[Rfam]
The record is a 50-nucleotide sequence from Erysipelatoclostridium sp. An173, which matches "Streptococcus sRNA SpF59 (ldcC RNA)" in Rfam. The base pairs follow the family's consensus structure, which was predicted with mfold. A reference for the family is Mann et al. (2012), "Control of virulence by small RNAs in Streptococcus pneumoniae", PLoS Pathog. It is annotated as a small RNA.

RNA sequence: UGACCACUCUUAUGAGUUAAAGCCAUCCGGACAGCUGGGUCAAAAGCCGA
Numbered sequence: 001u002g003a004c005c006a007c008u009c010u011u012a013u014g015a016g017u018u019a020a021a022g023c024c025a026u027c028c029g030g031a032c033a034g035c036u037g038g039g040u041c042a043a044a045a046g047c048c049g050a
Stems, first nucleotide, its partner, number of pairs: 001042005006017004